The family of this 110-nucleotide RNA from Halalkalibacter suaedae is "epsC RNA". By type it is a cis-regulatory element. The base pairs follow the family's consensus structure, which is taken from published work. The organism belongs to Halalkalibacter, within Bacteria.

RNA sequence: UGGUGAUGCCUACUUACCAUUAUAAUAGCAGGCACUCGAUCAUGCUGUGGGUUGUAAGACCUUAGAUGCUUGUCAUCAAAAGUGUGGUGUGAGGACGGGUUGAAUGCCCA
Number, nucleotide and partner (000 for none) at each position: 001u019002g018003g017004u016005g000006a000007u034008g033009c032010c031011u030012a000013c028014u000015u000016a004017c003018c002019a001020u000021u000022a000023u000024a000025a000026u000027a000028g013029c000030a011031g010032g009033c008034a007035c093036u092037c091038g090039a088040u087041c086042a085043u084044g083045c082046u081047g000048u000049g062050g061051g060052u059053u058054g000055u000056a000057a000058g053059a052060c051061c050062u049063u000064a000065g077066a076067u075068g074069c000070u000071u000072g000073u000074c068075a067076u066077c065078a000079a000080a000081a046082g045083u044084g043085u042086g041087g040088u039089g000090u038091g037092a036093g035094g000095a000096c000097g109098g108099g107100u106101u000102g000103a000104a000105u000106g100107c099108c098109c097110a000